[Rfam]
RNA sequence: AGUACUUUUAAAUUUAGUCCAGAGAGGCUAACAAAGUGAUAGAACUUAUAAACUUAAUAUUUUAUUUGGAGUUUAUGAUUAAUAUGGCAUUGUUACGACCUUUUAUACUAAUAUAAAAGGUCGUUUUUUAU
Numbered sequence: 001a002g003u004a005c006u007u008u009u010a011a012a013u014u015u016a017g018u019c020c021a022g023a024g025a026g027g028c029u030a031a032c033a034a035a036g037u038g039a040u041a042g043a044a045c046u047u048a049u050a051a052a053c054u055u056a057a058u059a060u061u062u063u064a065u066u067u068g069g070a071g072u073u074u075a076u077g078a079u080u081a082a083u084a085u086g087g088c089a090u091u092g093u094u095a096c097g098a099c100c101u102u103u104u105a106u107a108c109u110a111a112u113a114u115a116a117a118a119g120g121u122c123g124u125u126u127u128u129u130a131u
Stems, first nucleotide, its partner, number of pairs: 003038006014031006046078010057067001059065001095124012
The record is a 131-nucleotide sequence from Clostridium amylolyticum, which matches "PyrR binding site" in Rfam. NCBI's taxonomy places the organism under Bacteria, Bacillati, Clostridia, Eubacteriales, Clostridium. Rfam 15.1 lists 1,498 matches to the family in 930 species. A reference for the family is Bonner et al. (2001), "Molecular recognition of pyr mRNA by the Bacillus subtilis attenuation regulatory protein PyrR", Nucleic Acids Res.